Source information:
Shown here is a 176-nucleotide RNA sequence from Halobellus clavatus, a member of the family "Sense overlapping transcript RNA 0042 (sot)".
RNA sequence: AAGUAACUCCGAGUCUUCGCCUGUUUUGGGUGGGGAUAGGAGUACCGGCUGGUUGGCACAGCCAUCGGUCUACUUUCAUGACCUCUCCCGAGGAUUCCAACCUCGGGCAGAGGUGGUGGACUGCAAACCUUAAUAUCCCAACUGCGGUCGGGAUUCCUUCGCCUUCAGGCGGAGGA
Numbered sequence: 001a002a003g004u005a006a007c008u009c010c011g012a013g014u015c016u017u018c019g020c021c022u023g024u025u026u027u028g029g030g031u032g033g034g035g036a037u038a039g040g041a042g043u044a045c046c047g048g049c050u051g052g053u054u055g056g057c058a059c060a061g062c063c064a065u066c067g068g069u070c071u072a073c074u075u076u077c078a079u080g081a082c083c084u085c086u087c088c089c090g091a092g093g094a095u096u097c098c099a100a101c102c103u104c105g106g107g108c109a110g111a112g113g114u115g116g117u118g119g120a121c122u123g124c125a126a127a128c129c130u131u132a133a134u135a136u137c138c139c140a141a142c143u144g145c146g147g148u149c150g151g152g153a154u155u156c157c158u159u160c161g162c163c164u165u166c167a168g169g170c171g172g173a174g175g176a
Stems, first nucleotide, its partner, number of pairs: 003046001007042004013037003017033006047063005066123004070116007089105005136153004141148002155176009
It is associated with IS1341-type transposase (tnpB) genes, at the 3'-end in H. salinarum NRC-1.